[Rfam]
Shown here is an 81-nucleotide RNA from Culex quinquefasciatus, a member of the family "mir-9/mir-79 microRNA precursor family".
The family has 214 seed sequences and 5,647 matches in Rfam 15.1.
The organism belongs to Culex pipiens complex, within Eukaryota.
For this family Rfam cites "Identification of novel genes coding for small expressed RNAs" (Lagos-Quintana et al., Science, 2001).
Rfam's curators put it in the seed alignment.
Its family is annotated with RISC complex and miRNA-mediated post-transcriptional gene silencing in the Gene Ontology.

RNA sequence: GGCUGAAUCUUUGGUAUUCUAGCUGUAGAAUGUUGAGCUUGUUACGGUAUCUUCUAAAGCUUUAGUACCAGAGGUCCAACU
Numbered sequence: 001g002g003c004u005g006a007a008u009c010u011u012u013g014g015u016a017u018u019c020u021a022g023c024u025g026u027a028g029a030a031u032g033u034u035g036a037g038c039u040u041g042u043u044a045c046g047g048u049a050u051c052u053u054c055u056a057a058a059g060c061u062u063u064a065g066u067a068c069c070a071g072a073g074g075u076c077c078a079a080c081u
Stems, first nucleotide, its partner, number of pairs: 001081002004078002007075012021061004026056005